[Rfam]
RNA sequence: GAGUCGUUAGCUCAGUUGGUAGAGCAUUAGACUUUUAAUCUAAGGGUCAGGGGUUCGAGUCCCCUACGGGGCU
Numbered sequence: 001g002a003g004u005c006g007u008u009a010g011c012u013c014a015g016u017u018g019g020u021a022g023a024g025c026a027u028u029a030g031a032c033u034u035u036u037a038a039u040c041u042a043a044g045g046g047u048c049a050g051g052g053g054u055u056c057g058a059g060u061c062c063c064c065u066a067c068g069g070g071g072c073u
Base pairs, nucleotide, nucleotide: 001072004069005068006067007066010025011024012023013022027043028042029041030040031039049065050064051063052062053061
RNA: tRNA
Organism: Cylicocyclus nassatus